[Rfam]
RNA sequence: UGGACAUAUUAUUGUAUUCGACUUUAUUCACGGUGUGAAAUAGGGGAUUACACUAUUUUUAAACGGAACGUGAAUCAAUUAACAUAAUCGAUUCCU
Numbered sequence: 001u002g003g004a005c006a007u008a009u010u011a012u013u014g015u016a017u018u019c020g021a022c023u024u025u026a027u028u029c030a031c032g033g034u035g036u037g038a039a040a041u042a043g044g045g046g047a048u049u050a051c052a053c054u055a056u057u058u059u060u061a062a063a064c065g066g067a068a069c070g071u072g073a074a075u076c077a078a079u080u081a082a083c084a085u086a087a088u089c090g091a092u093u094c095c096u
Stems, first nucleotide, its partner, number of pairs: 002095003009090001011088005017082002020080002023077001026075006034065003037059007

Shown here is a 96-nucleotide RNA sequence from Nicotiana sylvestris, a member of the family "MIR6152 microRNA precursor family". A search with the family's covariance model found it, with a score of 91 bits.